[Rfam]
RNA sequence: UUUUUAUUGAAUGUUACUGUUGCGUAUUGCGCUUUUAUUGAAAGUUAACGUUAAUUAGGUACACAAAAUUAACGUUUCAAUAAAAGUGUAACACGUGACGAUCAACGUUG
Numbered sequence: 001u002u003u004u005u006a007u008u009g010a011a012u013g014u015u016a017c018u019g020u021u022g023c024g025u026a027u028u029g030c031g032c033u034u035u036u037a038u039u040g041a042a043a044g045u046u047a048a049c050g051u052u053a054a055u056u057a058g059g060u061a062c063a064c065a066a067a068a069u070u071a072a073c074g075u076u077u078c079a080a081u082a083a084a085a086g087u088g089u090a091a092c093a094c095g096u097g098a099c100g101a102u103c104a105a106c107g108u109u110g
Stems, first nucleotide, its partner, number of pairs: 019099004024094002028090003032086004037081003
Description:
The family of this 110-nucleotide RNA sequence from Glycine max is "MIR1520 microRNA precursor family". Pairs were carried over by alignment from the consensus structure, which was predicted with RNAalifold. A search with the family's covariance model found it, with a score of 56 bits. Its Rfam clan is "MIR1520 microRNA precursor clan".